[Rfam]
RNA sequence: GUGACAUGAUGACAGAGUUUAUCCAUUCUCUGAGUGCAGCGACGCUGCCCUCCUGCGGCACCCGGGCUCCUGUUCUAGGAGCCGGGUGUCGUGCGGCCUCCAGAGACCCUGCAGUGUCCCCGUGUCCUGCUGGGGGCUGUGGCCGGCUGCCUGCAGGAGGGGGGUGUCCUGGCCGGGCUGGAGCCCCCUUUUUGGGGGCUGCAUCCCCACCGAGAUGAAGGAUGCUGUCUGAUCAC
Numbered sequence: 001g002u003g004a005c006a007u008g009a010u011g012a013c014a015g016a017g018u019u020u021a022u023c024c025a026u027u028c029u030c031u032g033a034g035u036g037c038a039g040c041g042a043c044g045c046u047g048c049c050c051u052c053c054u055g056c057g058g059c060a061c062c063c064g065g066g067c068u069c070c071u072g073u074u075c076u077a078g079g080a081g082c083c084g085g086g087u088g089u090c091g092u093g094c095g096g097c098c099u100c101c102a103g104a105g106a107c108c109c110u111g112c113a114g115u116g117u118c119c120c121c122g123u124g125u126c127c128u129g130c131u132g133g134g135g136g137c138u139g140u141g142g143c144c145g146g147c148u149g150c151c152u153g154c155a156g157g158a159g160g161g162g163g164g165u166g167u168c169c170u171g172g173c174c175g176g177g178c179u180g181g182a183g184c185c186c187c188c189u190u191u192u193u194g195g196g197g198g199c200u201g202c203a204u205c206c207c208c209a210c211c212g213a214g215a216u217g218a219a220g221g222a223u224g225c226u227g228u229c230u231g232a233u234c235a236c
Stems, first nucleotide, its partner, number of pairs: 010235003017228002023221002026219003030214002034210002039173002042170001043166004048161010059088006066082006093150006107135001108133001111130004116125002175207003179203002182200001184198004

Rfam assigns this 236-nucleotide RNA from Crypturellus soui to the family "Small nucleolar RNA SNORD17". The snoRNA HBI-43 belongs to the C/D family of snoRNAs, guiding 2'O-ribose methylation at position U3797 of the 28S rRNA. Pseudouridylation in position U3797 is predicted to be guided by the H/ACA snoRNA ACA48. Rfam links the family to the GO terms RNA processing and nucleolus. By type it is a C/D-box small nucleolar RNA. Rfam 15.1 lists 1,015 matches to the family in 568 species.